A member of the RNA family "Small nucleolar RNA SNORA11" from Cnephaeus nilssonii, 128 nucleotides long. Rfam describes the family as follows. U107 (SNORA11) is a member of the H/ACA class of snoRNAs that guide the sites of modification of uridines to pseudouridines. This snoRNA was identified by RT-PCR from blood cells and its expression confirmed by Northern blot analysis. There is no predicted target for this guide snRNA. The family has 35 seed sequences and 2,014 matches in Rfam 15.1. The family's consensus secondary structure was predicted with RNAalifold.
[Rfam]
RNA sequence: UGGGUGUGAAGAGAGCAGAUCACCUGAAGAAUGGCUCCUCUGUGUAUAACACAUCCAACAGCAACUUGGGCUCACUCCUCACGGGUGGCAGGAUGCUAUGACCUUCCUGUGACAUUACGCUAUAAUAU
Numbered sequence: 001u002g003g004g005u006g007u008g009a010a011g012a013g014a015g016c017a018g019a020u021c022a023c024c025u026g027a028a029g030a031a032u033g034g035c036u037c038c039u040c041u042g043u044g045u046a047u048a049a050c051a052c053a054u055c056c057a058a059c060a061g062c063a064a065c066u067u068g069g070g071c072u073c074a075c076u077c078c079u080c081a082c083g084g085g086u087g088g089c090a091g092g093a094u095g096c097u098a099u100g101a102c103c104u105u106c107c108u109g110u111g112a113c114a115u116u117a118c119g120c121u122a123u124a125a126u127a128u
Stems, first nucleotide, its partner, number of pairs: 002056007013045001015043005023034002069121003076114001080111002083104003091097002